[Rfam]
RNA: mir-81 microRNA precursor family
Organism: Enterobius vermicularis
RNA sequence: CCGAAGUUGGCAGUCGGCCUUCACCGUGAUCUGCAGAAUGCAAAUGACACACUGUCUGAGAUCAUUGUGAAAGCUGUUUGCCUUCUUUGC
Number, nucleotide and partner (000 for none) at each position: 001c000002c000003g000004a000005a000006g000007u000008u000009g082010g081011c080012a079013g000014u000015c000016g075017g074018c073019c000020u071021u070022c069023a068024c067025c000026g000027u064028g063029a062030u061031c060032u059033g000034c000035a057036g056037a055038a000039u051040g000041c000042a000043a000044a000045u000046g000047a000048c000049a000050c000051a039052c000053u000054g000055u037056c036057u035058g000059a032060g031061a030062u029063c028064a027065u000066u000067g024068u023069g022070a021071a020072a000073g018074c017075u016076g000077u000078u000079u012080g011081c010082c009083u000084u000085c000086u000087u000088u000089g000090c000